[Rfam]
RNA sequence: AAUAAGGUAAAGUUGCCACUGAAGACAGCAGGAGCCUGUUGGCUUAAUCUUAUAUCCUGCCGAGGUUGGACAGAUCGCUGACAUAAGUUCAGCUUUCUUAACCUCUGUUGCGGCAGAGGUUUUUUUGACUGGGU
Numbered sequence: 001a002a003u004a005a006g007g008u009a010a011a012g013u014u015g016c017c018a019c020u021g022a023a024g025a026c027a028g029c030a031g032g033a034g035c036c037u038g039u040u041g042g043c044u045u046a047a048u049c050u051u052a053u054a055u056c057c058u059g060c061c062g063a064g065g066u067u068g069g070a071c072a073g074a075u076c077g078c079u080g081a082c083a084u085a086a087g088u089u090c091a092g093c094u095u096u097c098u099u100a101a102c103c104u105c106u107g108u109u110g111c112g113g114c115a116g117a118g119g120u121u122u123u124u125u126u127g128a129c130u131g132g133g134u
Stems, first nucleotide, its partner, number of pairs: 028060006034043003100121009